Rfam assigns this 46-nucleotide sequence from Neomonachus schauinslandi to the family "Histone 3' UTR stem-loop".
RNA sequence: AAAAAGGCUCUUCUCAGAGCCACCUACUUUGUCAAAAAUCUGUUGU
Numbered sequence: 001a002a003a004a005a006g007g008c009u010c011u012u013c014u015c016a017g018a019g020c021c022a023c024c025u026a027c028u029u030u031g032u033c034a035a036a037a038a039u040c041u042g043u044u045g046u
Stems, first nucleotide, its partner, number of pairs: 006021006
Rfam classes the family as a cis-regulatory element. The mRNAs of metazoan histone genes lack a poly-A tail. 3' end processing occurs at a site between a highly conserved stem-loop (modelled by this family) and a purine rich region around 20 nts downstream (the histone downstream element, or HDE). The stem-loop is bound by a 31 kDa stem-loop binding protein (SLBP - also termed the histone hairpin binding protein, or HBP). Gene Ontology term of the family: mRNA 3'-end processing by stem-loop binding and cleavage.